BsrG: a 395-nucleotide RNA from Mesobacillus persicus. NCBI's taxonomy places the organism under Bacteria, Bacillota, Bacilli, Caryophanales, Mesobacillus. It scores 83 bits against the family's covariance model. By type it is a small RNA. The base pairs follow the family's consensus structure, which was predicted with WAR. bsrE, bsrG and bsrH pair through intermolecular interactions with antisense sRNAs. They form type I toxin/antitoxin system that includes an mRNA encoding for a short, toxic peptide (bsrE, bsrG and bsrH) and an antitoxin that is comprised of an antisense RNA. bsrG encodes a 39-amino-acid toxin, and the 180 nucleotide antisense sRNA called SR4 acts as the antitoxin (they overlap by 123 nucleotides).
RNA sequence: GCAAUAGAAUAGGUUUUCUCAAGGGUGGUCGGCACAUCCCCAAGCAGAAAGGGGGUGGUGCUGAAUGACAGUUUUUGAAUCACUAAUGAUGGCAAUCGCUUUUGCAAGUCUGGUUGUAGCCAUCCUGUCAUUUAACCAUAAAGGACUUCCAUCAGUGGGAUGCCUUAUCCCCACUGAUGGUUAGUCGCACUUAUCGGACCUUUACAGGCAGUUGAUCCCCUGUAUGUACUUUGUUUACUCAAAAUUUUAGGUUGGGGGUCUUACUGCCUGUUAAGGUGGGGAAAAAAAUAAUCCACCCUUGAGUUGACGCCAACGGGUGGAUUAUCUCUACUCAAAUAGCCGACCCUUUUGUGGGAACCGUCUAUUGCUGGACUGGACAUGUUCACCCAUGUUCA
Numbered sequence: 001g002c003a004a005u006a007g008a009a010u011a012g013g014u015u016u017u018c019u020c021a022a023g024g025g026u027g028g029u030c031g032g033c034a035c036a037u038c039c040c041c042a043a044g045c046a047g048a049a050a051g052g053g054g055g056u057g058g059u060g061c062u063g064a065a066u067g068a069c070a071g072u073u074u075u076u077g078a079a080u081c082a083c084u085a086a087u088g089a090u091g092g093c094a095a096u097c098g099c100u101u102u103u104g105c106a107a108g109u110c111u112g113g114u115u116g117u118a119g120c121c122a123u124c125c126u127g128u129c130a131u132u133u134a135a136c137c138a139u140a141a142a143g144g145a146c147u148u149c150c151a152u153c154a155g156u157g158g159g160a161u162g163c164c165u166u167a168u169c170c171c172c173a174c175u176g177a178u179g180g181u182u183a184g185u186c187g188c189a190c191u192u193a194u195c196g197g198a199c200c201u202u203u204a205c206a207g208g209c210a211g212u213u214g215a216u217c218c219c220c221u222g223u224a225u226g227u228a229c230u231u232u233g234u235u236u237a238c239u240c241a242a243a244a245u246u247u248u249a250g251g252u253u254g255g256g257g258g259u260c261u262u263a264c265u266g267c268c269u270g271u272u273a274a275g276g277u278g279g280g281g282a283a284a285a286a287a288a289u290a291a292u293c294c295a296c297c298c299u300u301g302a303g304u305u306g307a308c309g310c311c312a313a314c315g316g317g318u319g320g321a322u323u324a325u326c327u328c329u330a331c332u333c334a335a336a337u338a339g340c341c342g343a344c345c346c347u348u349u350u351g352u353g354g355g356a357a358c359c360g361u362c363u364a365u366u367g368c369u370g371g372a373c374u375g376g377a378c379a380u381g382u383u384c385a386c387c388c389a390u391g392u393u394c395a
Base pairs, nucleotide, nucleotide: 001368002367003366004365005364007362008361012341013340014339015338018303019302020301021300022299023298024297025296027293028292029291035057036056038055039054040053041052067268069266070265071264072263098260313329315327344355345354346353374395375394376393377392378391379390380389381388